[Rfam]
RNA sequence: CUGUAAAGAUAUGUUGAGCCGUAGAGCCGCGACCUUUUACAAAAGGACAUAUCGAUGAA
Number, nucleotide and partner (000 for none) at each position: 001c000002u000003g000004u000005a000006a000007a000008g053009a052010u051011a050012u049013g048014u029015u000016g028017a000018g027019c026020c000021g000022u000023a000024g000025a000026g019027c018028c016029g014030c000031g000032a000033c046034c045035u044036u043037u042038u000039a000040c000041a000042a037043a036044a035045g034046g033047a000048c013049a012050u011051a010052u009053c008054g000055a000056u000057g000058a000059a000
This 59-nucleotide sequence belongs to the Rfam family "S4-Fusobacteriales ribosomal protein leader". It is annotated as a cis-regulatory leader. Its Rfam clan is "Ribosomal Protein S4 Leader clan". The sequence is in the family's curated seed alignment.